[Rfam]
Nucleotides: 053
Base pairs, nucleotide, nucleotide: 005026006025008023009022010021011020012019034053035052036051037050038049039048040047
Number, partner (000 for none) and nucleotide at each position: 001000g002000g003000g004000u005026g006025c007000u008023g009022g010021a011020c012019u013000a014000u015000c016000u017000a018000u019012g020011g021010u022009c023008c024000u025006g026005c027000a028000g029000g030000u031000u032000u033000u034053g035052a036051a037050u038049g039048g040047u041000c042000g043000g044000g045000c046000c047040g048039c049038c050037a051036u052035u053034u